[Rfam]
RNA sequence: AUGCACAGUGAACACCCAUGUCUGCUUCUUUUGUAUCUCCCCUGGAUUUUACUCUGUGCUUGAGUAAAGUUUGGUCUGUGACCUCUGUAUUGGAGGAGUUGCAUUCUCCUCCACAUGUAUUCAACAAACCAGUACAUUU
Numbered sequence: 001a002u003g004c005a006c007a008g009u010g011a012a013c014a015c016c017c018a019u020g021u022c023u024g025c026u027u028c029u030u031u032u033g034u035a036u037c038u039c040c041c042c043u044g045g046a047u048u049u050u051a052c053u054c055u056g057u058g059c060u061u062g063a064g065u066a067a068a069g070u071u072u073g074g075u076c077u078g079u080g081a082c083c084u085c086u087g088u089a090u091u092g093g094a095g096g097a098g099u100u101g102c103a104u105u106c107u108c109c110u111c112c113a114c115a116u117g118u119a120u121u122c123a124a125c126a127a128a129c130c131a132g133u134a135c136a137u138u139u
Base pairs, nucleotide, nucleotide: 003059004058005057006056007055008054010053014049016045017044018043020041024037026035062076063075065073066072086123087122088117089116090115092112093111094110095109096108097107098106